The family of this 85-nucleotide sequence from Crocodylus porosus is "Mammalian CPEB3 ribozyme".
[Rfam]
RNA sequence: AGAGGUCACAAGCUAGAGGUUGCAGCAGAAGUGCUCAUGGUGCAGCCCUGUCAGAUCAGAUUCCAGCUAAUCUGCAAAUUCUGCU
Numbered sequence: 001a002g003a004g005g006u007c008a009c010a011a012g013c014u015a016g017a018g019g020u021u022g023c024a025g026c027a028g029a030a031g032u033g034c035u036c037a038u039g040g041u042g043c044a045g046c047c048c049u050g051u052c053a054g055a056u057c058a059g060a061u062u063c064c065a066g067c068u069a070a071u072c073u074g075c076a077a078a079u080u081c082u083g084c085u
Stems, first nucleotide, its partner, number of pairs: 016048001018047004024085007031043003052074005058068001